Shown here is a 449-nucleotide part of an RNA from Haladaptatus paucihalophilus, a member of the family "Archaeal large subunit ribosomal RNA". Rfam 15.1 lists 2,955 matches to the family in 1,139 species. The family's consensus secondary structure is taken from published work.
RNA sequence: CCAACCGAAACAUGUCGAAGCAUGACCUUCGCUAAGGUAGUUCGUGGGGUAGAGCGACCGAUUGGGAGAACCGCCUCCGAGAGGAGUCGGCCUCCCUGUCAAACUCCAAACCUACGGACGCCGUUGACGCGAGGAAUCCGGUGCGCGGGGUAAGCCUGUGUACCGUGAGGGAGACAACCCAGAGCCGGGUUAAGGUCCCAAAGUAUGAGCUAAGUGCGAUUGAAGGUGGUCGCAAGCCCUAAACAGCCGGGAGGUGAGCUUAGAAGCAGCUACCCUCUAAGAACAGCGUAACAGCUUACCGGCCGAGGUUUGCGGCGCCGAAAAUGAUCGGGGCUCAAGUUCAUCACCGAGACCUGGCAGCGCUCUUGACCGAGCGAUCUAGUAGGUUGGCAUUCUGAAUGGGUGGAAGCACGGGCGAGAGUUCGUGUGGACCGUUCAGUAUCGAAAAU
Number, nucleotide and partner (000 for none) at each position: 001c390002c389003a388004a387005c386006c385007g000008a000009a000010a000011c024012a023013u022014g021015u020016c000017g000018a000019a000020g015021c014022a013023u012024g011025a000026c000027c134028u133029u132030c131031g130032c129033u000034a000035a000036g122037g121038u120039a000040g119041u118042u117043c116044g115045u114046g113047g112048g000049g000050u000051a000052g107053a105054g104055c000056g000057a000058c000059c000060g100061a099062u098063u000064g096065g095066g094067a093068g092069a000070a000071c000072c000073g088074c000075c086076u085077c084078c083079g000080a000081g000082a000083g078084g077085a076086g075087u000088c073089g000090g000091c000092c068093u067094c066095c065096c064097u000098g062099u061100c060101a000102a000103a000104c054105u053106c000107c052108a000109a000110a000111c000112c047113u046114a045115c044116g043117g042118a041119c040120g038121c037122c036123g000124u000125u000126g000127a000128c000129g032130c031131g030132a029133g028134g027135a000136a000137u000138c000139c000140g164141g163142u162143g161144c160145g159146c158147g157148g156149g000150g000151u000152a000153a000154g000155c000156c148157u147158g146159u145160g144161u143162a142163c141164c140165g000166u000167g000168a000169g180170g179171g178172a000173g000174a000175c000176a000177a000178c171179c170180c169181a000182g000183a000184g358185c357186c356187g355188g354189g353190u352191u000192a000193a000194g348195g347196u346197c000198c000199c000200a000201a000202a000203g345204u000205a344206u343207g342208a341209g340210c339211u000212a000213a000214g000215u000216g000217c000218g000219a000220u000221u000222g000223a000224a000225g319226g318227u317228g000229g316230u315231c314232g313233c312234a311235a310236g309237c308238c307239c000240u000241a000242a000243a000244c000245a000246g303247c302248c301249g300250g299251g000252a276253g275254g274255u000256g000257a271258g270259c269260u000261u000262a000263g000264a000265a000266g000267c000268a000269g259270c258271u257272a000273c000274c254275c253276u252277c281278u000279a000280a000281g277282a297283a000284c000285a000286g295287c294288g000289u000290a000291a000292c000293a000294g287295c286296u000297u282298a000299c250300c249301g248302g247303c246304c000305g000306a000307g238308g237309u236310u235311u234312g233313c232314g231315g230316c229317g227318c226319c225320g000321a000322a000323a000324a000325u000326g000327a000328u000329c000330g000331g000332g000333g000334c000335u000336c000337a000338a000339g210340u209341u208342c207343a206344u205345c203346a196347c195348c194349g000350a000351g000352a190353c189354c188355u187356g186357g185358c184359a380360g379361c376362g375363c374364u373365c372366u000367u000368g000369a000370c000371c000372g365373a364374g363375c362376g361377a000378u000379c360380u359381a000382g000383u000384a000385g006386g005387u004388u003389g002390g001391c444392a000393u441394u000395c439396u438397g437398a436399a435400u434401g433402g432403g000404u000405g000406g000407a000408a000409g428410c427411a426412c425413g424414g423415g422416c421417g000418a000419g000420a000421g416422u415423u414424c413425g412426u411427g410428u409429g000430g000431a000432c402433c401434g400435u399436u398437c397438a396439g395440u000441a393442u000443c000444g391445a000446a000447a000448a000449u000